[Rfam]
Shown here is a 132-nucleotide RNA sequence from Aegotheles bennettii, a member of the family "Small nucleolar RNA SNORA15".
Its family is annotated with nucleolus and RNA processing in the Gene Ontology.
On this family, see Huttenhofer et al., EMBO J 2001: "RNomics: an experimental approach that identifies 201 candidates for novel, small, non-messenger RNAs in mouse".
The source organism's lineage runs through Eukaryota, Eumetazoa, Bilateria, Neognathae and Aegotheles.
RNA sequence: GCAUGGCCGAAUUCUGCACUAGCUUUCCUCAGUAGCUACUGCAGUCAGACACUAUGCCAGAAUAAAUCCCUGUUCCACACUGGCAUGCUUUUCAUCUGCAAGUGAGCGUGCCCGUGGAGGUGGGAUACAGAA
Numbered sequence: 001g002c003a004u005g006g007c008c009g010a011a012u013u014c015u016g017c018a019c020u021a022g023c024u025u026u027c028c029u030c031a032g033u034a035g036c037u038a039c040u041g042c043a044g045u046c047a048g049a050c051a052c053u054a055u056g057c058c059a060g061a062a063u064a065a066a067u068c069c070c071u072g073u074u075c076c077a078c079a080c081u082g083g084c085a086u087g088c089u090u091u092u093c094a095u096c097u098g099c100a101a102g103u104g105a106g107c108g109u110g111c112c113c114g115u116g117g118a119g120g121u122g123g124g125a126u127a128c129a130g131a132a
Base pairs, nucleotide, nucleotide: 001057002056003055004054005053006052014044015043016042017041018040068124070123071122072121073120074119078116079115080114082112083111084110085109086108087107088106089105090104